This 129-nucleotide sequence from Pogona vitticeps belongs to the Rfam family "Small Cajal body specific RNA 8". scaRNAs are a specific class of small nuclear RNAs which localise to the Cajal bodies and guide the modification of RNA polymerase II transcribed spliceosomal RNAs U1, U2, U4, U5 and U12. U92 belong to the H/ACA box class of guide RNAs as it has the predicted hairpin-hinge-hairpin-tail structure, conserved H/ACA-box motifs and is found associated with GAR1. A reference for the family is Huttenhofer et al. (2001), "RNomics: an experimental approach that identifies 201 candidates for novel, small, non-messenger RNAs in mouse", EMBO J. Lineage of the source: Eukaryota > Eumetazoa > Vertebrata > Euteleostomi > Pogona. The family's consensus secondary structure is taken from published work. It is annotated as a small Cajal body RNA.
[Rfam]
RNA sequence: UGGGAGGCUGAUACCCAAUUAGAGGAAAUUUUCUCUAGUUGGCACAUACUCUCCCUAUAAUAAAAUUGCCUUCUGAUGACCGGAGUGAGUUGAGGGAAAUCAUAACGGACAGAUACGGGGCAUACAGCU
Numbered sequence: 001u002g003g004g005a006g007g008c009u010g011a012u013a014c015c016c017a018a019u020u021a022g023a024g025g026a027a028a029u030u031u032u033c034u035c036u037a038g039u040u041g042g043c044a045c046a047u048a049c050u051c052u053c054c055c056u057a058u059a060a061u062a063a064a065a066u067u068g069c070c071u072u073c074u075g076a077u078g079a080c081c082g083g084a085g086u087g088a089g090u091u092g093a094g095g096g097a098a099a100u101c102a103u104a105a106c107g108g109a110c111a112g113a114u115a116c117g118g119g120g121c122a123u124a125c126a127g128c129u
Stems, first nucleotide, its partner, number of pairs: 002055006015042004022035004067122006080108003085103004